Description: Rfam assigns this 97-nucleotide RNA from Treponema vincentii to the family "TD-2 RNA". On this family, see Weinberg et al., Nucleic Acids Res 2007: "Identification of 22 candidate structured RNAs in bacteria using the CMfinder comparative genomics pipeline". The family is grouped with related families in Rfam's "TD (Treponema denticola) motifs".
RNA sequence: UCUGACAGGAUGUCAGUGGUUCUAAACAGUAUCGAGUUUUUCGUUAUGAAAAACUUGAAGCUCAGAAAUGAACAAGGAUGUUCAUUUCUGAACGAUG
Dot-bracket structure: .(((((.....)))))................(((((((((((...)))))))))))..(.((((((((((((......)))))))))))).)....